Overview: Alphaproteobacteria transfer-messenger RNA: a 353-nucleotide sequence from Tropicimonas sediminicola. The family's consensus secondary structure is taken from published work. Gene Ontology term of the family: RNA catabolic process. The family's RNA type in Rfam is non-coding RNA gene. The literature on the family includes a 2003 paper in Nucleic Acids Res by Zwieb et al., "tmRDB (tmRNA database)".
[Rfam]
RNA sequence: ACGCUUGAAUCGUCGCAGCCAAAGCCCUAUUUCUGUCAUGUCUCUUCGGGGACUAUGGCGAUAAACGCGCUCGUAAUAAGCGGCUCGGACCCGGGGGCGGUACCCGGCGGCUCCACCAAAAAUCCCGCGUUGGGGGAUCAUGGGGCCGAAAUAGGAUCGACGGACGUCUAAAGGGGUUUGCUUUCGCUCGGUGAGGUACCACCGUUACCGGUCCGAUAAGCAUAAUUGCCAACGACAAUCGUGCUCCGGUGGCAGUCGCUGCGUAAUGCAGUGACCAAAACCGAAAUCUAAGCCCAGUCGCCUAGCAGCGGUCUGGCGGGGUUCGCAGGCACCUGGCAACAGAAGCCUGCACU
Numbered sequence: 001a002c003g004c005u006u007g008a009a010u011c012g013u014c015g016c017a018g019c020c021a022a023a024g025c026c027c028u029a030u031u032u033c034u035g036u037c038a039u040g041u042c043u044c045u046u047c048g049g050g051g052a053c054u055a056u057g058g059c060g061a062u063a064a065a066c067g068c069g070c071u072c073g074u075a076a077u078a079a080g081c082g083g084c085u086c087g088g089a090c091c092c093g094g095g096g097g098c099g100g101u102a103c104c105c106g107g108c109g110g111c112u113c114c115a116c117c118a119a120a121a122a123u124c125c126c127g128c129g130u131u132g133g134g135g136g137a138u139c140a141u142g143g144g145g146c147c148g149a150a151a152u153a154g155g156a157u158c159g160a161c162g163g164a165c166g167u168c169u170a171a172a173g174g175g176g177u178u179u180g181c182u183u184u185c186g187c188u189c190g191g192u193g194a195g196g197u198a199c200c201a202c203c204g205u206u207a208c209c210g211g212u213c214c215g216a217u218a219a220g221c222a223u224a225a226u227u228g229c230c231a232a233c234g235a236c237a238a239u240c241g242u243g244c245u246c247c248g249g250u251g252g253c254a255g256u257c258g259c260u261g262c263g264u265a266a267u268g269c270a271g272u273g274a275c276c277a278a279a280a281c282c283g284a285a286a287u288c289u290a291a292g293c294c295c296a297g298u299c300g301c302c303u304a305g306c307a308g309c310g311g312u313c314u315g316g317c318g319g320g321g322u323u324c325g326c327a328g329g330c331a332c333c334u335g336g337c338a339a340c341a342g343a344a345g346c347c348u349g350c351a352c353u
Stems, first nucleotide, its partner, number of pairs: 040053005057188005067181002069177004081166002085163003091107005108148007189204004195214002198212003319334004325350006